[Rfam]
RNA sequence: UAAGGAUUCUGUUAGGUGAGGCUCCUGUAUAGAGAAACGCUGCUGCCCAGAAAUGUCGAGAGACGCCAAUGGGUCAACAGGAAAGAUCGGAAUAAGGUCUUUUUUAAUGUAGCUGGUAAUAGACCUAUGCUAUACAGUGCUAAAACUAAAACGAGGGAAACUGGU
Numbered sequence: 001u002a003a004g005g006a007u008u009c010u011g012u013u014a015g016g017u018g019a020g021g022c023u024c025c026u027g028u029a030u031a032g033a034g035a036a037a038c039g040c041u042g043c044u045g046c047c048c049a050g051a052a053a054u055g056u057c058g059a060g061a062g063a064c065g066c067c068a069a070u071g072g073g074u075c076a077a078c079a080g081g082a083a084a085g086a087u088c089g090g091a092a093u094a095a096g097g098u099c100u101u102u103u104u105u106a107a108u109g110u111a112g113c114u115g116g117u118a119a120u121a122g123a124c125c126u127a128u129g130c131u132a133u134a135c136a137g138u139g140c141u142a143a144a145a146c147u148a149a150a151a152c153g154a155g156g157g158a159a160a161c162u163g164g165u
Stems, first nucleotide, its partner, number of pairs: 005161001007159004011152002013095001015147003020141003025137008039113005045074005054065004080104004086098003115125003